[Rfam]
RNA sequence: UGAACGGCUCUCUUUAGAGCCACCUAUUAUUAGAAAUAAAUUAUUU
Numbered sequence: 001u002g003a004a005c006g007g008c009u010c011u012c013u014u015u016a017g018a019g020c021c022a023c024c025u026a027u028u029a030u031u032a033g034a035a036a037u038a039a040a041u042u043a044u045u046u
Base pairs, nucleotide, nucleotide: 006021007020008019009018010017011016
Rfam assigns this 46-nucleotide RNA from Strongyloides venezuelensis to the family "Histone 3' UTR stem-loop". Pairs were carried over by alignment from the consensus structure, which is taken from published work. For this family Rfam cites "The sequence of the stem and flanking sequences at the 3' end of histone mRNA are critical determinants for the binding of the stem-loop binding protein" (Williams and Marzluff, Nucleic Acids Res, 1995). NCBI's taxonomy places the organism under Eukaryota, Bilateria, Panagrolaimomorpha, Strongyloididae, Strongyloides.